[Rfam]
RNA sequence: GUCCGUUCAUCCUGAUUAUAGGACGCAUGAAACCUGAUCAUGGAACGGGGGUCAGGU
Numbered sequence: 001g002u003c004c005g006u007u008c009a010u011c012c013u014g015a016u017u018a019u020a021g022g023a024c025g026c027a028u029g030a031a032a033c034c035u036g037a038u039c040a041u042g043g044a045a046c047g048g049g050g051g052u053c054a055g056g057u
Base pairs, nucleotide, nucleotide: 004047005046006045007044008043010023011022012021013020014019032057033056034055035054036053037052038050039049

Background:
Shown here is a 57-nucleotide sequence, a member of the family "Glutamine-II riboswitch aptamer". Gene Ontology term of the family: glutamine binding.